[Rfam]
RNA sequence: AUAAUAUAUACCGAACAGACGGCAGUACUGCGGGUGCUGUGCAGUCGGGCUGACAGGCAGCAGACGAUGCAUCUGCGGGACAACGUU
Numbered sequence: 001a002u003a004a005u006a007u008a009u010a011c012c013g014a015a016c017a018g019a020c021g022g023c024a025g026u027a028c029u030g031c032g033g034g035u036g037c038u039g040u041g042c043a044g045u046c047g048g049g050c051u052g053a054c055a056g057g058c059a060g061c062a063g064a065c066g067a068u069g070c071a072u073c074u075g076c077g078g079g080a081c082a083a084c085g086u087u
Stems, first nucleotide, its partner, number of pairs: 010086002013081001016079001018046003022040006049058003060076005
RNA: NiCo (Nickel/Cobalt) riboswitch aptamer
Organism: Hominimerdicola alba